[Rfam]
RNA sequence: UCUGUAUGCAAUUGUAUGUCGCUUUGGAUGAAAGCGUCUGCUAAAUGACUGUAA
Numbered sequence: 001u002c003u004g005u006a007u008g009c010a011a012u013u014g015u016a017u018g019u020c021g022c023u024u025u026g027g028a029u030g031a032a033a034g035c036g037u038c039u040g041c042u043a044a045a046u047g048a049c050u051g052u053a054a
Stems, first nucleotide, its partner, number of pairs: 013043001014041003020036006

Source information
The family of this 54-nucleotide RNA sequence from Synaphobranchus kaupii is "UnaL2 LINE 3' element". By type it is a cis-regulatory element. The base pairs follow the family's consensus structure, which is taken from published work. The literature on the family includes a 2004 paper in RNA by Baba et al., "Solution structure of an RNA stem-loop derived from the 3' conserved region of eel LINE UnaL2".